[Rfam]
RNA sequence: UUUCAAUGAUGACUACAUCUAGGUACAUUUCUGGCAUCUCUAAUGUUAGGGUGGGCGUUUAAGUACUUCUCACUCGAUGAAUAGAAACCUUUAACCAUAAUAACUGAAA
Numbered sequence: 001u002u003u004c005a006a007u008g009a010u011g012a013c014u015a016c017a018u019c020u021a022g023g024u025a026c027a028u029u030u031c032u033g034g035c036a037u038c039u040c041u042a043a044u045g046u047u048a049g050g051g052u053g054g055g056c057g058u059u060u061a062a063g064u065a066c067u068u069c070u071c072a073c074u075c076g077a078u079g080a081a082u083a084g085a086a087a088c089c090u091u092u093a094a095c096c097a098u099a100a101u102a103a104c105u106g107a108a109a
Stems, first nucleotide, its partner, number of pairs: 050074004
RNA: Small nucleolar RNA snR48